[Rfam]
RNA sequence: AAGGGAAGUGCCGAAAACCCUCAAAAAAGAGUAGGCU
Numbered sequence: 001a002a003g004g005g006a007a008g009u010g011c012c013g014a015a016a017a018c019c020c021u022c023a024a025a026a027a028a029g030a031g032u033a034g035g036c037u
Stems, first nucleotide, its partner, number of pairs: 002021004010036003
RNA: DUF805b RNA
Organism: Chitinophaga flava